[Rfam]
This 61-nucleotide RNA from Handroanthus impetiginosus belongs to the Rfam family "Plastid-psbN 5UTR RNA".

RNA sequence: UGCGAUACCCAUCAAAGGGGUCGUUCCCCACCUGGGAGCUACUUUACCAUACUCAGAAUUC
Numbered sequence: 001u002g003c004g005a006u007a008c009c010c011a012u013c014a015a016a017g018g019g020g021u022c023g024u025u026c027c028c029c030a031c032c033u034g035g036g037a038g039c040u041a042c043u044u045u046a047c048c049a050u051a052c053u054c055a056g057a058a059u060u061c
Stems, first nucleotide, its partner, number of pairs: 017045005023039005
Description
From the family's description: Plastid psbN is a non-coding RNA (ncRNA) recognised in plastids. It was reported as a conserved 11 stem-loop in the prime untranslated region (5UTR) of psbN genes. It has been reported that the motif is retained in a subset of mature transcripts in barley, which can suggests a possible role in transcript alternative 5 prime processing. The match comes from Rfam's covariance-model search (73 bits).